[Rfam]
RNA sequence: GUAAAGGAGCAAUAAAAAAUUUCUUGUUAUAUCAAGAGGUUUGUUAUUGCUCCUUUACUAUU
Number, nucleotide and partner (000 for none) at each position: 001g058002u057003a056004a055005a054006g053007g052008a051009g050010c049011a048012a047013u046014a045015a044016a000017a042018a041019a040020u000021u000022u037023c036024u035025u034026g033027u000028u000029a000030u000031a000032u000033c026034a025035a024036g023037a022038g000039g000040u019041u018042u017043g000044u015045u014046a013047u012048u011049g010050c009051u008052c007053c006054u005055u004056u003057a002058c001059u000060a000061u000062u000